c-di-AMP riboswitch aptamer (ydaO/yuaA leader): a 190-nucleotide RNA from Nocardioides mesophilus. This family represents a conserved RNA structure found upstream of the ydaO and yuaA genes in Bacillus subtilis and related genes in other bacteria. Taxonomically the source falls in Nocardioides (Bacteria, Bacillati, Propionibacteriales, Nocardioidaceae).

RNA sequence: CGCCCCGUCCCAUCCCUCGACACAUAGAACGGGCAGGAGUGGGGGACCCAGGUUCCUCGCGAUGAACGUGCUGUCCCCGGACAGCGCGCCACCGCUCGGGGUGAAGCCACCGGACCGACUCGUCGGCCGCCGGUGGCAGGGCACCUUUCGGCCCUAACCCGACAGCUCACCUCACAGGCGUGGAAAGGAA
Number, nucleotide and partner (000 for none) at each position: 001c180002g179003c178004c177005c000006c000007g000008u038009c037010c036011c000012a000013u000014c000015c000016c000017u000018c000019g000020a000021c000022a000023c000024a000025u000026a000027g000028a000029a000030c000031g000032g000033g000034c000035a000036g010037g009038a008039g175040u174041g173042g172043g171044g170045g000046a000047c000048c000049c098050a000051g000052g000053u000054u000055c000056c000057u000058c000059g000060c000061g000062a000063u000064g000065a000066a000067c000068g000069u000070g000071c000072u000073g000074u000075c000076c000077c000078c000079g000080g000081a000082c000083a000084g000085c000086g000087c000088g000089c000090c000091a000092c000093c000094g000095c000096u000097c000098g049099g160100g159101g158102u000103g000104a000105a000106g000107c136108c135109a134110c133111c132112g131113g130114a000115c000116c000117g000118a000119c000120u000121c000122g000123u000124c000125g000126g000127c000128c000129g000130c113131c112132g111133g110134u109135g108136g107137c000138a000139g154140g153141g152142c151143a000144c000145c000146u000147u000148u000149c000150g000151g142152c141153c140154c139155u000156a000157a000158c101159c100160c099161g000162a000163c000164a000165g000166c000167u000168c000169a000170c044171c043172u042173c041174a040175c039176a000177g004178g003179c002180g001181u000182g000183g000184a000185a000186a000187g000188g000189a000190a000